RNA sequence: GCCCCAGCUAGGCCCGCGAACCGAAAAGCGGGUCACCUUCACCCGCCUGCUGGGGCGCGCCAACGAAGG
Numbered sequence: 001g002c003c004c005c006a007g008c009u010a011g012g013c014c015c016g017c018g019a020a021c022c023g024a025a026a027a028g029c030g031g032g033u034c035a036c037c038u039u040c041a042c043c044c045g046c047c048u049g050c051u052g053g054g055g056c057g058c059g060c061c062a063a064c065g066a067a068g069g
Base pairs, nucleotide, nucleotide: 001056002055003054004053005052006051007050008049011022012021028046029045030044031043032042036069037068038067039066040065